[Rfam]
RNA: U2 spliceosomal RNA
Organism: Jaculus jaculus
RNA sequence: AUUGUUUUUUGGCCUUUUGGCUAUUCUUAUCAGUUUAAUAUCUGCUACGUCCUCUAUCUGAGGAGAAUAUAGUAAAUUGAUUUUUGGAGCUUGGAGUUGGAAUAGGAGCUUGCUCUGUCCACUCCAUGCAUCGACCUGGUGUUGCAGUACCUCUAGGAAUGGUGCACCCCCU
Numbered sequence: 001a002u003u004g005u006u007u008u009u010u011g012g013c014c015u016u017u018u019g020g021c022u023a024u025u026c027u028u029a030u031c032a033g034u035u036u037a038a039u040a041u042c043u044g045c046u047a048c049g050u051c052c053u054c055u056a057u058c059u060g061a062g063g064a065g066a067a068u069a070u071a072g073u074a075a076a077u078u079g080a081u082u083u084u085u086g087g088a089g090c091u092u093g094g095a096g097u098u099g100g101a102a103u104a105g106g107a108g109c110u111u112g113c114u115c116u117g118u119c120c121a122c123u124c125c126a127u128g129c130a131u132c133g134a135c136c137u138g139g140u141g142u143u144g145c146a147g148u149a150c151c152u153c154u155a156g157g158a159a160u161g162g163u164g165c166a167c168c169c170c171c172u
Stems, first nucleotide, its partner, number of pairs: 011022004028047002031044003050064005093125005099119002105116004128165006135157005